[Rfam]
RNA: Purine riboswitch aptamer
Nucleotides: 101
Base pairs, nucleotide, nucleotide: 018087019086020085021084022083023082024081025080029048030047031046032045033044034043035042058076059075060074061073062072063071
Number, partner (000 for none) and nucleotide at each position: 001000c002000a003000a004000a005000c006000a007000a008000c009000u010000g011000a012000a013000u014000a015000a016000u017000c018087u019086u020085u021084u022083c023082g024081u025080a026000u027000a028000a029048u030047c031046c032045c033044g034043g035042g036000a037000a038000u039000c040000g041000g042035c043034u044033c045032g046031g047030g048029a049000g050000u051000c052000u053000c054000u055000a056000c057000g058076a059075g060074g061073u062072c063071a064000c065000c066000g067000c068000a069000a070000a071063u072062g073061a074060u075059c076058u077000g078000u079000c080025u081024a082023c083022g084021a085020a086019a087018a088000g089000g090000g091000a092000a093000a094000a095000c096000a097000a098000g099000c100000c101000g